[Rfam]
RNA: Eukaryotic small subunit ribosomal RNA, nucleotides 601 to 1135
Organism: Pseudozyma hubeiensis
RNA sequence: AGUUGUUGCAGUUAAAAAGCUCGUAGUUGAAGUUUGGUCUCGGACGCUGGGUCUGCUUAAUUGCAUGUACUUGACGGUCCGAGACUUCCUUCUUGGUGAACGGCCGCCUUCGGGUGGUCCGGAACCAGGACUAUUACUUUGAAAAAAUUAGAGUGUUCAAAGCAGGCCAUAGGCCCGAAUAUAUUAGCAUGGAAUAACAGAAUAGGACGUGCGGUUCUAUUUUGUUGGUUUCUAGAACUGCCGUAAUGAUUAAAAGGGACAGCCGGGGGCAUUAGUAUUUGCACGCUAGAGGUGAAAUUCUUGGAUUGUGCAAAGACUUCCUACUGCGAAAGCAUUUGCCAAGAAUGUUUUCAUUAAUCAAGAACGAAGGUUAGGGUAUCGAAAACGAUUAGAUACCGUUGUAGUCUUAACAGUAAACUAUGCCGACUCCGAAUCGGUCGAUGCUCAUUUCACUGGCUCGAUCGGCGCGGUACGAGAAAUCAAAGUUUUUGGGUUCUGGGGGGAGUAUGGUCGCAAGGCUGAAACUUAAAGAAAU
Numbered sequence: 001a002g003u004u005g006u007u008g009c010a011g012u013u014a015a016a017a018a019g020c021u022c023g024u025a026g027u028u029g030a031a032g033u034u035u036g037g038u039c040u041c042g043g044a045c046g047c048u049g050g051g052u053c054u055g056c057u058u059a060a061u062u063g064c065a066u067g068u069a070c071u072u073g074a075c076g077g078u079c080c081g082a083g084a085c086u087u088c089c090u091u092c093u094u095g096g097u098g099a100a101c102g103g104c105c106g107c108c109u110u111c112g113g114g115u116g117g118u119c120c121g122g123a124a125c126c127a128g129g130a131c132u133a134u135u136a137c138u139u140u141g142a143a144a145a146a147a148u149u150a151g152a153g154u155g156u157u158c159a160a161a162g163c164a165g166g167c168c169a170u171a172g173g174c175c176c177g178a179a180u181a182u183a184u185u186a187g188c189a190u191g192g193a194a195u196a197a198c199a200g201a202a203u204a205g206g207a208c209g210u211g212c213g214g215u216u217c218u219a220u221u222u223u224g225u226u227g228g229u230u231u232c233u234a235g236a237a238c239u240g241c242c243g244u245a246a247u248g249a250u251u252a253a254a255a256g257g258g259a260c261a262g263c264c265g266g267g268g269g270c271a272u273u274a275g276u277a278u279u280u281g282c283a284c285g286c287u288a289g290a291g292g293u294g295a296a297a298u299u300c301u302u303g304g305a306u307u308g309u310g311c312a313a314a315g316a317c318u319u320c321c322u323a324c325u326g327c328g329a330a331a332g333c334a335u336u337u338g339c340c341a342a343g344a345a346u347g348u349u350u351u352c353a354u355u356a357a358u359c360a361a362g363a364a365c366g367a368a369g370g371u372u373a374g375g376g377u378a379u380c381g382a383a384a385a386c387g388a389u390u391a392g393a394u395a396c397c398g399u400u401g402u403a404g405u406c407u408u409a410a411c412a413g414u415a416a417a418c419u420a421u422g423c424c425g426a427c428u429c430c431g432a433a434u435c436g437g438u439c440g441a442u443g444c445u446c447a448u449u450u451c452a453c454u455g456g457c458u459c460g461a462u463c464g465g466c467g468c469g470g471u472a473c474g475a476g477a478a479a480u481c482a483a484a485g486u487u488u489u490u491g492g493g494u495u496c497u498g499g500g501g502g503g504a505g506u507a508u509g510g511u512c513g514c515a516a517g518g519c520u521g522a523a524a525c526u527u528a529a530a531g532a533a534a535u
Stems, first nucleotide, its partner, number of pairs: 009498003017495001019365001021363002026358003256352004260347002264343001268340004274318002278314008289300003326333002370411006380404001384400004422494003425487003429470003434465008443457003474481002500527003509520004